[Rfam]
RNA: ASpks TB sRNA
RNA sequence: CUUCAGCGAACCCAGCCACAACGGCCGGCCCUCCGGCCGCUCCCGCCCGUACGUGGUGAGCAGCGCCUGCGCCUC
Numbered sequence: 001c002u003u004c005a006g007c008g009a010a011c012c013c014a015g016c017c018a019c020a021a022c023g024g025c026c027g028g029c030c031c032u033c034c035g036g037c038c039g040c041u042c043c044c045g046c047c048c049g050u051a052c053g054u055g056g057u058g059a060g061c062a063g064c065g066c067c068u069g070c071g072c073c074u075c
Stems, first nucleotide, its partner, number of pairs: 015025003031071001033069001038065002043060001047056003